RNA: c-di-AMP riboswitch aptamer (ydaO/yuaA leader)
RNA sequence: UGUAAAUUACAGCCGAAUUCCCUUCGCGGGGAACGGGGGAACCACUUUGGGUGAAUUGAUCUCGCAAGAGAGGGAUCAUAGGGGACCUUCAACCGAAUCCUUAAGCUAACCUCGUAGGCAUUGGAAGGAGCAUUU
Number, nucleotide and partner (000 for none) at each position: 001u000002g000003u000004a000005a000006a000007u000008u000009a000010c000011a000012g119013c118014c117015g000016a000017a000018u032019u031020c030021c000022c000023u000024u000025c000026g000027c000028g000029g000030g020031g019032a018033a115034c114035g113036g112037g111038g110039g000040a000041a000042c000043c000044a000045c000046u000047u000048u000049g100050g099051g098052u000053g000054a000055a000056u000057u078058g077059a076060u075061c074062u073063c072064g000065c000066a000067a000068g000069a000070g000071a000072g063073g062074g061075a060076u059077c058078a057079u000080a000081g094082g093083g000084g000085a000086c000087c000088u000089u000090c000091a000092a000093c082094c081095g000096a000097a000098u051099c050100c049101u000102u000103a000104a000105g000106c000107u000108a000109a000110c038111c037112u036113c035114g034115u033116a000117g014118g013119c012120a000121u000122u000123g000124g000125a000126a000127g000128g000129a000130g000131c000132a000133u000134u000135u000